[Rfam]
RNA sequence: AUACGGAGCGUUAAAAACACAGUCCGGUUGGUAGUCCGGGCAUACCUCUAGCUUGUGACGGCAUGGUAAACAGCGUGGCGCCGUUAGAAUUAGGUAUCAGUAGCCUUCCCCCCUCGGGAUGUCCGAACGUUUCCGUAAUUUUA
Number, nucleotide and partner (000 for none) at each position: 001a000002u000003a000004c135005g134006g133007a131008g130009c129010g128011u127012u000013a000014a000015a000016a000017a000018c000019a000020c000021a000022g041023u040024c039025c038026g037027g036028u000029u000030g000031g000032u000033a000034g000035u000036c027037c026038g025039g024040g023041c022042a097043u096044a095045c094046c093047u092048c000049u000050a000051g000052c000053u000054u000055g000056u000057g000058a000059c000060g000061g000062c000063a000064u000065g000066g000067u000068a000069a000070a000071c000072a000073g000074c000075g000076u000077g000078g000079c000080g000081c000082c000083g000084u000085u000086a000087g000088a000089a000090u000091u000092a047093g046094g045095u044096a043097u042098c000099a000100g000101u000102a000103g000104c000105c000106u000107u119108c118109c117110c116111c000112c000113c000114u000115c000116g110117g109118g108119a107120u000121g000122u000123c000124c000125g000126a000127a011128c010129g009130u008131u007132u000133c006134c005135g004136u000137a000138a000139u000140u000141u000142u000143a000
Rfam assigns this 143-nucleotide RNA sequence from Paenibacillus sp. CAA11 to the family "azaaromatic riboswitch aptamer (yjdF RNA)". The family's consensus secondary structure is taken from published work. A search with the family's covariance model found it, with a score of 75 bits.